[Rfam]
RNA sequence: AACCUGGUUGAUCCUGCCAGUAGUCAUAUGCUUGUCUUAAAGAUUAAGCCAUGCAUGUCUAAGUAUAAGCUUUUAUAUGGUGAAACUGCGAAUGGCUCAUUACAACAGUUAUAGUUUAUUUGAUGUUCGUUUUUACAUGGAUAACCGUGCUAAUUGUAGGGCUAAUACAUGUUCGAGACCUUCGGGUGGCGUUUAUUAGACCUAAAACCAAUCCGUGCCAAACACGGUUCCCGGUGAUUCAUAAUAAACUUGCGAAUCGCUUUACUUAGCGAUGUAUCAUUCAAGUUUCUGACCUAUCAGCUUUGGACGGUAGGGUAUUGGCCUACCGGGGCAACGACGGGUAACGGGGAAUUAGGGUUCGAUUCCGGAGAGGGAGCCUGAGAAACGGCUACCACAUCUAAGGAAGGCAGCAGGCGCGCAAAUUACCCAAUCCUGACACAGGGAGGUAGUGACAAGAAAUAACAAUACGGGGCUUAAUGUCUUGUAAUUGGAAUGAUGGGAAUUUAAACCUCUUCCAGAGUAUCAAUUGGAGGGCAAGUCUGGUGCCAGCAGCCGCGGUAAUUCCAGCUCCAAUAGCGUAUAUUAAAUUUGUUG
Numbered sequence: 001a002a003c004c005u006g007g008u009u010g011a012u013c014c015u016g017c018c019a020g021u022a023g024u025c026a027u028a029u030g031c032u033u034g035u036c037u038u039a040a041a042g043a044u045u046a047a048g049c050c051a052u053g054c055a056u057g058u059c060u061a062a063g064u065a066u067a068a069g070c071u072u073u074u075a076u077a078u079g080g081u082g083a084a085a086c087u088g089c090g091a092a093u094g095g096c097u098c099a100u101u102a103c104a105a106c107a108g109u110u111a112u113a114g115u116u117u118a119u120u121u122g123a124u125g126u127u128c129g130u131u132u133u134u135a136c137a138u139g140g141a142u143a144a145c146c147g148u149g150c151u152a153a154u155u156g157u158a159g160g161g162c163u164a165a166u167a168c169a170u171g172u173u174c175g176a177g178a179c180c181u182u183c184g185g186g187u188g189g190c191g192u193u194u195a196u197u198a199g200a201c202c203u204a205a206a207a208c209c210a211a212u213c214c215g216u217g218c219c220a221a222a223c224a225c226g227g228u229u230c231c232c233g234g235u236g237a238u239u240c241a242u243a244a245u246a247a248a249c250u251u252g253c254g255a256a257u258c259g260c261u262u263u264a265c266u267u268a269g270c271g272a273u274g275u276a277u278c279a280u281u282c283a284a285g286u287u288u289c290u291g292a293c294c295u296a297u298c299a300g301c302u303u304u305g306g307a308c309g310g311u312a313g314g315g316u317a318u319u320g321g322c323c324u325a326c327c328g329g330g331g332c333a334a335c336g337a338c339g340g341g342u343a344a345c346g347g348g349g350a351a352u353u354a355g356g357g358u359u360c361g362a363u364u365c366c367g368g369a370g371a372g373g374g375a376g377c378c379u380g381a382g383a384a385a386c387g388g389c390u391a392c393c394a395c396a397u398c399u400a401a402g403g404a405a406g407g408c409a410g411c412a413g414g415c416g417c418g419c420a421a422a423u424u425a426c427c428c429a430a431u432c433c434u435g436a437c438a439c440a441g442g443g444a445g446g447u448a449g450u451g452a453c454a455a456g457a458a459a460u461a462a463c464a465a466u467a468c469g470g471g472g473c474u475u476a477a478u479g480u481c482u483u484g485u486a487a488u489u490g491g492a493a494u495g496a497u498g499g500g501a502a503u504u505u506a507a508a509c510c511u512c513u514u515c516c517a518g519a520g521u522a523u524c525a526a527u528u529g530g531a532g533g534g535c536a537a538g539u540c541u542g543g544u545g546c547c548a549g550c551a552g553c554c555g556c557g558g559u560a561a562u563u564c565c566a567g568c569u570c571c572a573a574u575a576g577c578g579u580a581u582a583u584u585a586a587a588u589u590u591g592u593u594g
Base pairs, nucleotide, nucleotide: 004020005019006018007017008016022584023583024582026581027580028579029578030577031576032575035457036456037455038454041450042417048415049414050413052412053411054410057089058088062087063086064085069081070080096370097369098368106291107290108289111286112285115284116283121279122278123277124276136171137170138169139168145161146160148158149157150156179186180185193247194246195245196244197243198242207235208234209233215225216224217223257272258271259270260269261268293341294340295339300332301331302330308328309327310326311325312324313323314322345367346366347365348364349360350359351358352357372393373392375390376389377388395406397404398403423448425447426446427445431443432442433441434440435439463490464489465488466486467485468484469483470482471481472480473479497517498516499514501513527573528572529571530570531569532568540567541566542565543564549556550555
RNA: Eukaryotic small subunit ribosomal RNA, nucleotides 1 to 594